R2 RNA element: a 192-nucleotide RNA from Agrilus planipennis.
About the family: This family represents the 3' UTR region of the R2 retrotransposable element. This family is known to interact with the R2-encoded reverse transcriptase in a reaction known as target primed reverse transcription (TPRT).
The base pairs follow the family's consensus structure, which is taken from published work.
It is annotated as a cis-regulatory element.
A reference for the family is Ruschak et al. (2004), "Secondary structure models of the 3' untranslated regions of diverse R2 RNAs", RNA.

[Rfam]
RNA sequence: ACUCAUACUCAUACUUAGAUUGCAGUGUUAGCAUUUAUCCACCGGCUGAAGAGGACCCUAGUUGGUCCUAAAACGGCCUGAGGUAGAGGGGUUUUAGUCGGUAGGUCCGAGGACUUCUUCCUCGGGAAUCCGACACUACCCAGUCGUACGGACGGCUGGGUGUCUUCUGAAGAUUUCCCCUCUUCCACGAAA
Numbered sequence: 001a002c003u004c005a006u007a008c009u010c011a012u013a014c015u016u017a018g019a020u021u022g023c024a025g026u027g028u029u030a031g032c033a034u035u036u037a038u039c040c041a042c043c044g045g046c047u048g049a050a051g052a053g054g055a056c057c058c059u060a061g062u063u064g065g066u067c068c069u070a071a072a073a074c075g076g077c078c079u080g081a082g083g084u085a086g087a088g089g090g091g092u093u094u095u096a097g098u099c100g101g102u103a104g105g106u107c108c109g110a111g112g113a114c115u116u117c118u119u120c121c122u123c124g125g126g127a128a129u130c131c132g133a134c135a136c137u138a139c140c141c142a143g144u145c146g147u148a149c150g151g152a153c154g155g156c157u158g159g160g161u162g163u164c165u166u167c168u169g170a171a172g173a174u175u176u177c178c179c180c181u182c183u184u185c186c187a188c189g190a191a192a
Base pairs, nucleotide, nucleotide: 025056026055062191063190065188066187082186083185085183086182088179089178090177097134098133099132100131101130106126107125108124109123110122111121112120113119136162138161139160140159141158142157